[Rfam]
This 71-nucleotide RNA sequence from Tribolium castaneum belongs to the Rfam family "mir-305 microRNA precursor family". It is one of the family's seed sequences.

Nucleotides: 071
Base pairs, nucleotide, nucleotide: 001071002070003069004068010062011061012060014058015057016056017055018054020052021051023049024048025047027045030043031042
Number, partner (000 for none) and nucleotide at each position: 001071c002070a003069u004068g005000u006000c007000u008000a009000u010062u011061g012060u013000a014058c015057u016056u017055c018054a019000u020052c021051a022000g023049g024048u025047g026000c027045u028000c029000u030043g031042g032000u033000a034000u035000a036000c037000u038000u039000u040000u041000u042031c043030c044000c045027g046000a047025c048024a049023c050000c051021u052020g053000u054018u055017g056016g057015a058014g059000u060012g061011c062010a063000c064000u065000a066000a067000u068004u069003a070002u071001g
NCBI's taxonomy places the organism under Eukaryota, Pterygota, Endopterygota, Aparaglossata, Tribolium. The family's consensus secondary structure was predicted with RNAalifold. A reference for the family is Weaver et al. (2007), "Computational and transcriptional evidence for microRNAs in the honey bee genome", Genome Biol.